Rfam assigns this 90-nucleotide RNA sequence from Desulfarculus baarsii to the family "c-di-GMP-I riboswitch aptamer". The source organism's lineage runs through Bacteria, Thermodesulfobacteriota, Desulfarculia, Desulfarculaceae and Desulfarculus baarsii. A reference for the family is Weinberg et al. (2007), "Identification of 22 candidate structured RNAs in bacteria using the CMfinder comparative genomics pipeline", Nucleic Acids Res. Rfam links the family to the GO term cyclic-di-GMP binding.
RNA sequence: GGUGUGAAAGGGCAAACCCGCGCGAAAGCCGGGGGCGCAAAGUCACCGGCCUACAGCCGCCCGGGCGGCCACGGCGGCGGGACUGCCAAC
Dot-bracket structure: ...........((...((((.((....))))))...))..((((.((((((....((((......))))...)))..)))))))......